[Rfam]
RNA: Plastid-psbA-1 3UTR RNA
Organism: Ricinus communis
RNA sequence: UCGAAGCUCCAUCUACAAAGGAAUAAAGUCAGUCUUAGUAUGCGUGAGUUCUUAAAAAUAAAAUAAAAAUGAGGAGCAAUAGCCAAUCUCUUGUUCUAUCGAAAGGGUUGGUAUUGCUUCUUU
Numbered sequence: 001u002c003g004a005a006g007c008u009c010c011a012u013c014u015a016c017a018a019a020g021g022a023a024u025a026a027a028g029u030c031a032g033u034c035u036u037a038g039u040a041u042g043c044g045u046g047a048g049u050u051c052u053u054a055a056a057a058a059u060a061a062a063a064u065a066a067a068a069a070u071g072a073g074g075a076g077c078a079a080u081a082g083c084c085a086a087u088c089u090c091u092u093g094u095u096c097u098a099u100c101g102a103a104a105g106g107g108u109u110g111g112u113a114u115u116g117c118u119u120c121u122u123u
Base pairs, nucleotide, nucleotide: 008023010021012019071122072121073120074119075118076117077116078115079114080113081112085108088105089104091102092101